This 31-nucleotide RNA sequence belongs to the Rfam family "L31-Firmicutes ribosomal protein leader". A reference for the family is Eckert and Weinberg (2020), "Discovery of 20 novel ribosomal leader candidates in bacteria and archaea", BMC Microbiol. The base pairs follow the family's consensus structure, which is taken from published work. By type it is a cis-regulatory leader. Its Rfam clan is "Ribosomal Protein L31 Leader clan".

[Rfam]
RNA sequence: CUCUGUACCAGAUGGUCCAGGGCGAGAGGAG
Numbered sequence: 001c002u003c004u005g006u007a008c009c010a011g012a013u014g015g016u017c018c019a020g021g022g023c024g025a026g027a028g029g030a031g
Stems, first nucleotide, its partner, number of pairs: 001022005007016003